[Rfam]
RNA: Alpha operon ribosome binding site
RNA sequence: AGACAGCAACAUUAUUUGAGUAUCCUGAAAACGGGCUUUUCAGAGUAUUGUUGCCUUAUUUUAUUGUAGGAGUGCAUAGUGGCCCGUAUAGCAGGCAUUAACAUUCCUGAU
Number, nucleotide and partner (000 for none) at each position: 001a000002g000003a000004c000005a000006g054007c053008a052009a051010c050011a049012u000013u047014a000015u000016u000017u000018g000019a000020g000021u000022a000023u000024c095025c094026u093027g000028a000029a000030a000031a000032c086033g085034g084035g083036c000037u000038u000039u000040u110041c109042a108043g000044a000045g000046u000047a013048u000049u011050g010051u009052u008053g007054c006055c000056u000057u000058a000059u000060u000061u000062u000063a000064u000065u000066g000067u000068a000069g000070g000071a000072g000073u000074g000075c000076a000077u000078a000079g000080u000081g000082g000083c035084c034085c033086g032087u000088a000089u000090a000091g000092c000093a026094g025095g024096c000097a000098u000099u000100a000101a000102c000103a000104u000105u000106c000107c000108u042109g041110a040111u000